[Rfam]
RNA: TPP riboswitch aptamer (THI element)
RNA sequence: AAGAAUAGCUAGGGGUGCCUGUAAGGCUGAGAGGAUGAUGUUCAUCCAACCCUUGAACCUGAUUUGGUUAGUACCAGCGGAGGGAAGCUAUAUUUGUGUAUG
Numbered sequence: 001a002a003g004a005a006u007a008g009c010u011a012g013g014g015g016u017g018c019c020u021g022u023a024a025g026g027c028u029g030a031g032a033g034g035a036u037g038a039u040g041u042u043c044a045u046c047c048a049a050c051c052c053u054u055g056a057a058c059c060u061g062a063u064u065u066g067g068u069u070a071g072u073a074c075c076a077g078c079g080g081a082g083g084g085a086a087g088c089u090a091u092a093u094u095u096g097u098g099u100a101u102g
Stems, first nucleotide, its partner, number of pairs: 006090005011053004017027004034046005058083003064077004